[Rfam]
RNA sequence: AAAGUCGAAGAUGAAGAGAUGGUCUCGUACAUCCUCAAUGGCCUCGACUUCGAAUACAACUCCCUGGUGCCGUUCAUCCUUGGGCGAAUGGACCAAGUUUCACUGAGUGAUCUUUACGCUCAGCUUGUUUCAUUUGAUA
Numbered sequence: 001a002a003a004g005u006c007g008a009a010g011a012u013g014a015a016g017a018g019a020u021g022g023u024c025u026c027g028u029a030c031a032u033c034c035u036c037a038a039u040g041g042c043c044u045c046g047a048c049u050u051c052g053a054a055u056a057c058a059a060c061u062c063c064c065u066g067g068u069g070c071c072g073u074u075c076a077u078c079c080u081u082g083g084g085c086g087a088a089u090g091g092a093c094c095a096a097g098u099u100u101c102a103c104u105g106a107g108u109g110a111u112c113u114u115u116a117c118g119c120u121c122a123g124c125u126u127g128u129u130u131c132a133u134u135u136g137a138u139a
Base pairs, nucleotide, nucleotide: 004138005137006136007135008134088108089107092104
The family of this 139-nucleotide sequence from Paspalum vaginatum is "Small nucleolar RNA Z247". A search with the family's covariance model found it, with a score of 46 bits. The organism belongs to Paspalum, within Eukaryota. For this family Rfam cites "The high diversity of snoRNAs in plants: identification and comparative study of 120 snoRNA genes from Oryza sativa" (Chen et al., Nucleic Acids Res, 2003).